[Rfam]
RNA: Small nucleolar RNA SNORD72
Organism: Larimichthys crocea
RNA sequence: UGCUUACGAUGAUGGUGAAAAAAAAAUGUCUGAACAAAUGAAUUCAUUGUGAUAUCAGUAUUUUCUCUGAGGUAAGCA
Numbered sequence: 001u002g003c004u005u006a007c008g009a010u011g012a013u014g015g016u017g018a019a020a021a022a023a024a025a026a027u028g029u030c031u032g033a034a035c036a037a038a039u040g041a042a043u044u045c046a047u048u049g050u051g052a053u054a055u056c057a058g059u060a061u062u063u064u065c066u067c068u069g070a071g072g073u074a075a076g077c078a
Stems, first nucleotide, its partner, number of pairs: 002077005007071001